The record is a 53-nucleotide RNA sequence from Anaerocolumna aminovalerica, which matches "Na+ riboswitch aptamer (DUF1646)" in Rfam. A search with the family's covariance model found it, with a score of 44 bits. Pairs were carried over by alignment from the consensus structure, which is taken from published work.
RNA sequence: GGUUGGCAAUUAUUAUUAAUUGUUUCAAGUUUUGAGCUUUAGGGUGGAGAGCU
Numbered sequence: 001g002g003u004u005g006g007c008a009a010u011u012a013u014u015a016u017u018a019a020u021u022g023u024u025u026c027a028a029g030u031u032u033u034g035a036g037c038u039u040u041a042g043g044g045u046g047g048a049g050a051g052c053u
Stems, first nucleotide, its partner, number of pairs: 003028003006023006035053006